Rfam assigns this 400-nucleotide RNA from Phytomonospora endophytica to the family "Bacterial RNase P class A". Rfam describes the family as follows. Ribonuclease P (RNase P) is a ubiquitous endoribonuclease, found in archaea, bacteria and eukarya as well as chloroplasts and mitochondria. Its best characterised activity is the generation of mature 5'-ends of tRNAs by cleaving the 5'-leader elements of precursor-tRNAs. Cellular RNase Ps are ribonucleoproteins. RNA from bacterial RNase Ps retains its catalytic activity in the absence of the protein subunit, i.e. it is a ribozyme. Isolated eukaryotic and archaeal RNase P RNA has not been shown to retain its catalytic function, but is still essential for the catalytic activity of the holoenzyme. Although the archaeal and eukaryotic holoenzyme s have a much greater protein content than the bacterial ones, the RNA cores from all the three lineages are homologous -- helices corresponding to P1, P2, P3, P4, and P10/11 are common to all cellular RNase P RNAs. Yet, there is considerable sequence variation, particularly among the eukaryotic RNAs. Identified in Yersinia as Ysr151/RnpB. It is annotated as a ribozyme. Its family is annotated with ribonuclease P activity, dimeric ribonuclease P complex and tRNA processing in the Gene Ontology.

[Rfam]
RNA sequence: CGAGCAGGCCAGGCGGCCGCGGCGCCGCUUCGGCGGCGUCGAGGAACGUCCGGGCUCCACAGGGCAGGGUGGUUGUUAACGGCAACCCGGGGUGACCCGCGGGAAAGUGCCACAGAGAACAGACCGCCGCGGCUCGCGAGAGCGCGCGGUAAGGGUGAAACGGUGGUGUAAGAGACCACCAGCGUCCCGGGUGACCGGGACGGCUCGGUAAACCCCACCCGGAGCAAGGUCAAGAGGGACCUUCGGGUCCUGCGCGGAUGUUCGAGGGCGGCCCGCCCGAGUCCGCGGGUAGACCGCACGAGCCCAUCGGCGACGGUGGGCCCAGAUGGAUGGCCGUCACCCGGGGCAACGCGGUGACGCGCUCCGGGGACAGAACCCGGCGUAUCGGCCUGCUCGUCCA
Numbered sequence: 001c002g003a004g005c006a007g008g009c010c011a012g013g014c015g016g017c018c019g020c021g022g023c024g025c026c027g028c029u030u031c032g033g034c035g036g037c038g039u040c041g042a043g044g045a046a047c048g049u050c051c052g053g054g055c056u057c058c059a060c061a062g063g064g065c066a067g068g069g070u071g072g073u074u075g076u077u078a079a080c081g082g083c084a085a086c087c088c089g090g091g092g093u094g095a096c097c098c099g100c101g102g103g104a105a106a107g108u109g110c111c112a113c114a115g116a117g118a119a120c121a122g123a124c125c126g127c128c129g130c131g132g133c134u135c136g137c138g139a140g141a142g143c144g145c146g147c148g149g150u151a152a153g154g155g156u157g158a159a160a161c162g163g164u165g166g167u168g169u170a171a172g173a174g175a176c177c178a179c180c181a182g183c184g185u186c187c188c189g190g191g192u193g194a195c196c197g198g199g200a201c202g203g204c205u206c207g208g209u210a211a212a213c214c215c216c217a218c219c220c221g222g223a224g225c226a227a228g229g230u231c232a233a234g235a236g237g238g239a240c241c242u243u244c245g246g247g248u249c250c251u252g253c254g255c256g257g258a259u260g261u262u263c264g265a266g267g268g269c270g271g272c273c274c275g276c277c278c279g280a281g282u283c284c285g286c287g288g289g290u291a292g293a294c295c296g297c298a299c300g301a302g303c304c305c306a307u308c309g310g311c312g313a314c315g316g317u318g319g320g321c322c323c324a325g326a327u328g329g330a331u332g333g334c335c336g337u338c339a340c341c342c343g344g345g346g347c348a349a350c351g352c353g354g355u356g357a358c359g360c361g362c363u364c365c366g367g368g369g370a371c372a373g374a375a376c377c378c379g380g381c382g383u384a385u386c387g388g389c390c391u392g393c394u395c396g397u398c399c400a
Stems, first nucleotide, its partner, number of pairs: 001396010011385001012338007020041009046383003050380005055224004062274004067220005072086005087101001088099004102215002107213002109209003124154002126150003132147002135144003162180006182204001183202008228295004254286006266278004302321008